Rfam assigns this 80-nucleotide sequence to the family "RAGATH-18 RNA". It is annotated as a small RNA.
RNA sequence: CUUGUGGACUGUUAUAGUAAAUGGGAGUAGAUUUUAUAUCUUAGGAUAUAAGAACAAAACCAGACAGGUUGAAGCAAGAA
Number, nucleotide and partner (000 for none) at each position: 001c078002u077003u076004g075005u074006g000007g000008a000009c067010u066011g065012u064013u063014a000015u000016a000017g000018u000019a000020a000021a000022u062023g061024g060025g000026a000027g000028u000029a000030g055031a000032u053033u000034u000035u050036a049037u048038a047039u046040c045041u000042u000043a000044g000045g040046a039047u038048a037049u036050a035051a000052g000053a032054a000055c030056a000057a000058a000059a000060c024061c023062a022063g013064a012065c011066a010067g009068g000069u000070u000071g000072a000073a000074g005075c004076a003077a002078g001079a000080a000